[Rfam]
Rfam assigns this 73-nucleotide sequence from Carnegiea gigantea to the family "tRNA".
Taxonomically the source falls in Carnegiea (Eukaryota, Streptophyta, Streptophytina, Tracheophyta).
From the family's description: Transfer RNA (tRNA) molecules are approximately 80 nucleotides in length.
RNA sequence: GUUGCUGUGGUGUGGUGGUUAUCACAUCAGUCUUACACACUGAAGGUCCCCAGUUCGAUCCUGGGCAGCAACA
Numbered sequence: 001g002u003u004g005c006u007g008u009g010g011u012g013u014g015g016u017g018g019u020u021a022u023c024a025c026a027u028c029a030g031u032c033u034u035a036c037a038c039a040c041u042g043a044a045g046g047u048c049c050c051c052a053g054u055u056c057g058a059u060c061c062u063g064g065g066c067a068g069c070a071a072c073a
Base pairs, nucleotide, nucleotide: 001072002071003070004069005068006067007066010025011024012023027043028042029041030040031039049065050064051063052062053061